The family of this 127-nucleotide RNA sequence from gamma proteobacterium IMCC2047 is "Ribosomal S15 leader". Rfam links the family to the GO term regulation of translation, ncRNA-mediated. The E. coli Ribosomal S15 gene 5' UTR can form two alternative structures. One that is a series of three hairpins, The other includes a pseudoknot. Rfam classes the family as a cis-regulatory leader. A search with the family's covariance model found it, with a score of 52 bits. NCBI's taxonomy places the organism under Bacteria, Pseudomonadati, Pseudomonadota, Gammaproteobacteria. For this family Rfam cites "Pseudoknot and translational control in the expression of the S15 ribosomal protein" (Benard et al., Biochimie, 1996).
RNA sequence: CUAUGCCUCUGUAGAUAUGCACGGGGCGCAUAGCUUUAAAAUUAACGCAUAUUCGAUUGGAGAAUAGAAAAUGUCUUUAACUGCACAAGAGAAAGAAGCAAUUGUAAGUGAAUUCGGCCGUGGCGCU
Numbered sequence: 001c002u003a004u005g006c007c008u009c010u011g012u013a014g015a016u017a018u019g020c021a022c023g024g025g026g027c028g029c030a031u032a033g034c035u036u037u038a039a040a041a042u043u044a045a046c047g048c049a050u051a052u053u054c055g056a057u058u059g060g061a062g063a064a065u066a067g068a069a070a071a072u073g074u075c076u077u078u079a080a081c082u083g084c085a086c087a088a089g090a091g092a093a094a095g096a097a098g099c100a101a102u103u104g105u106a107a108g109u110g111a112a113u114u115c116g117g118c119c120g121u122g123g124c125g126c127u
Stems, first nucleotide, its partner, number of pairs: 007026006057080006